[Rfam]
RNA sequence: UGGCGCCUCAACCUGGAGCCUAGAAACGAGGGAUUCCGUGAGGAAGAGGACGCGAAAGAACGGUCCGGUCAGAGCCGUCAAAGGCUGAAACUAAACUGCCGAUCACCGCGGGAACCGUGCCACGUCAGAUUGAGAGGUAAGUGACGCGUCUGAAAUUGGGACAAGAAUUAAGUCAACAUCAAAUCUAUGUUAGGACAAAUUAAAGAGAGGCUUUAAAGAUACGAGAGUAAAGGUUUAAAGGUAAUGAUUUGUUUAAAUUUUUUGAUUUUGUAAAAGACACUUGCCCUU
Numbered sequence: 001u002g003g004c005g006c007c008u009c010a011a012c013c014u015g016g017a018g019c020c021u022a023g024a025a026a027c028g029a030g031g032g033a034u035u036c037c038g039u040g041a042g043g044a045a046g047a048g049g050a051c052g053c054g055a056a057a058g059a060a061c062g063g064u065c066c067g068g069u070c071a072g073a074g075c076c077g078u079c080a081a082a083g084g085c086u087g088a089a090a091c092u093a094a095a096c097u098g099c100c101g102a103u104c105a106c107c108g109c110g111g112g113a114a115c116c117g118u119g120c121c122a123c124g125u126c127a128g129a130u131u132g133a134g135a136g137g138u139a140a141g142u143g144a145c146g147c148g149u150c151u152g153a154a155a156u157u158g159g160g161a162c163a164a165g166a167a168u169u170a171a172g173u174c175a176a177c178a179u180c181a182a183a184u185c186u187a188u189g190u191u192a193g194g195a196c197a198a199a200u201u202a203a204a205g206a207g208a209g210g211c212u213u214u215a216a217a218g219a220u221a222c223g224a225g226a227g228u229a230a231a232g233g234u235u236u237a238a239a240g241g242u243a244a245u246g247a248u249u250u251g252u253u254u255a256a257a258u259u260u261u262u263u264g265a266u267u268u269u270g271u272a273a274a275a276g277a278c279a280c281u282u283g284c285c286c287u288u
Stems, first nucleotide, its partner, number of pairs: 006032002009030001014026001037049001039047001090138003096134002103128001107124002110121002146162001149160004169215003172211003222264004226259003231250005237245001273288002276285001278283001

This 288-nucleotide RNA from Cercocebus atys belongs to the Rfam family "Mason-Pfizer monkey virus packaging signal". From the family's description: This family represents a group of sequences that are related to the Mason-Pfizer monkey virus (MPMV) packaging signal. The match comes from Rfam's covariance-model search (179 bits). The family's consensus secondary structure was predicted with PFOLD. Rfam classes the family as a cis-regulatory element.